[Rfam]
Background: Shown here is a 139-nucleotide sequence from Heyndrickxia sporothermodurans, a member of the family "Ribosomal protein L20 leader". Rfam describes the family as follows. This family is a putative r-protein leader autoregulatory structure found in B. subtilis and other low-GC Gram-positive bacteria. It is located in the 5' untranslated regions of mRNAs encoding initiation factor 3 followed by ribosomal proteins L35 and L20 (infC-rpmI-rplT). It is annotated as a cis-regulatory leader. The organism belongs to Heyndrickxia, within Bacteria. On this family, see Zengel and Lindahl, Prog Nucleic Acid Res Mol Biol 1994: "Diverse mechanisms for regulating ribosomal protein synthesis in Escherichia coli". Its family is annotated with regulation of gene expression in the Gene Ontology.
RNA sequence: GAGGAAAAGAAGAAGCACCCGCUUCUCGCCUGAUUGACGCAAGAUUGCAGUUGGCAGGUUUCGAAAUUCAUCACAUUCUUAACUAUUCAUGCGAAUGUAAAGUGCGGGUUCUUUUUAAGGCCCGUACUUUUUUAAUGCU
Numbered sequence: 001g002a003g004g005a006a007a008a009g010a011a012g013a014a015g016c017a018c019c020c021g022c023u024u025c026u027c028g029c030c031u032g033a034u035u036g037a038c039g040c041a042a043g044a045u046u047g048c049a050g051u052u053g054g055c056a057g058g059u060u061u062c063g064a065a066a067u068u069c070a071u072c073a074c075a076u077u078c079u080u081a082a083c084u085a086u087u088c089a090u091g092c093g094a095a096u097g098u099a100a101a102g103u104g105c106g107g108g109u110u111c112u113u114u115u116u117a118a119g120g121c122c123c124g125u126a127c128u129u130u131u132u133u134a135a136u137g138c139u
Base pairs, nucleotide, nucleotide: 011026012025013024014023015022016021028059029058030057036052037051038050039048040047103126104125105124106123107122108121109120110119112117